[Rfam]
RNA: mir-544 microRNA precursor family
Organism: Eschrichtius robustus
Nucleotides: 097
Stems, first nucleotide, its partner, number of pairs: 003090003010083002014080004019075002021072003025068002028065002031062003
Number, partner (000 for none) and nucleotide at each position: 001000g002000u003090c004089a005088c006000c007000u008000g009000g010083g011082a012000a013000u014080c015079u016078u017077g018000c019075u020074a021072a022071a023070a024000u025068g026067c027000u028065g029064a030000u031062u032061c033060u034000a035000a036000u037000u038000c039000a040000g041000u042000u043000u044000c045000u046000u047000g048000g049000g050000a051000u052000g053000g054000a055000a056000g057000u058000a059000g060033a061032g062031g063000u064029u065028c066000u067026g068025c069000a070023u071022u072021u073000c074020u075019a076000a077017c078016a079015a080014g081000c082011u083010c084000g085000c086000a087000g088005g089004u090003g091000a092000u093000g094000c095000u096000g097000c